[Rfam]
RNA sequence: CAGUGAGGUAGAGGCGCGAUAUUUAACAGUCCUUGGUGGAGCCCGAGAAGCUUUGAACCCAAGGAGAAGGAAAUAUCGCCGAAGUGGGCAGUAUACUCGGUAUUGCCUGCUGGGCCUGCAGUUAAGAGCUGCAGGACUGUCUCAAUAAACGACCCAGUUUGUUGAGUUGUGCUAUCUCAUCG
Number, nucleotide and partner (000 for none) at each position: 001c000002a000003g000004u000005g000006a177007g176008g175009u174010a173011g172012a000013g000014g000015c000016g079017c078018g077019a076020u075021a074022u073023u072024u071025a000026a000027c000028a000029g000030u000031c064032c063033u062034u061035g060036g059037u000038g000039g000040a000041g000042c000043c000044c000045g000046a000047g000048a000049a000050g000051c000052u000053u000054u000055g000056a000057a000058c000059c036060c035061a034062a033063g032064g031065a000066g000067a000068a000069g000070g000071a024072a023073a022074u021075a020076u019077c018078g017079c016080c000081g000082a000083a111084g110085u109086g108087g107088g106089c105090a104091g103092u102093a101094u100095a000096c000097u000098c000099g000100g094101u093102a092103u091104u090105g089106c088107c087108u086109g085110c084111u083112g138113g137114g000115c135116c134117u133118g132119c131120a130121g129122u128123u000124a000125a000126g000127a000128g122129c121130u120131g119132c118133a117134g116135g115136a000137c113138u112139g000140u000141c166142u165143c164144a163145a162146u161147a160148a159149a158150c000151g000152a000153c000154c000155c000156a000157g000158u149159u148160u147161g146162u145163u144164g143165a142166g141167u000168u000169g000170u000171g000172c011173u010174a009175u008176c007177u006178c000179a000180u000181c000182g000